[Rfam]
The family of this 79-nucleotide sequence from Sarcophilus harrisii is "mir-26 microRNA precursor family". The family's consensus secondary structure was predicted with RNAalifold. Lineage of the source: Eukaryota > Gnathostomata > Euteleostomi > Mammalia > Sarcophilus. On this family, see Lagos-Quintana et al., Science 2001: "Identification of novel genes coding for small expressed RNAs".

RNA sequence: CUGCCUCCAGAAACAAGUAAUCAAGAAUAGGCCUGCAGCUGGACACAGCCUAUCCUGGAUUACUUGAACCUGGCUGCAG
Numbered sequence: 001c002u003g004c005c006u007c008c009a010g011a012a013a014c015a016a017g018u019a020a021u022c023a024a025g026a027a028u029a030g031g032c033c034u035g036c037a038g039c040u041g042g043a044c045a046c047a048g049c050c051u052a053u054c055c056u057g058g059a060u061u062a063c064u065u066g067a068a069c070c071u072g073g074c075u076g077c078a079g
Stems, first nucleotide, its partner, number of pairs: 002078003007073004014066009024056002027053006